[Rfam]
A member of the RNA family "tRNA" from Mitosporidium daphniae, 73 nucleotides long. The match comes from Rfam's covariance-model search (57 bits).
RNA sequence: GUUCUCAUAGUGUAGCGGUUAUCACGUCGGCCUCACACGCUGAAGGUCCUCAGUUCGAUCCUGGGUGAGAACA
Numbered sequence: 001g002u003u004c005u006c007a008u009a010g011u012g013u014a015g016c017g018g019u020u021a022u023c024a025c026g027u028c029g030g031c032c033u034c035a036c037a038c039g040c041u042g043a044a045g046g047u048c049c050u051c052a053g054u055u056c057g058a059u060c061c062u063g064g065g066u067g068a069g070a071a072c073a
Stems, first nucleotide, its partner, number of pairs: 001072007010025003027043005049065005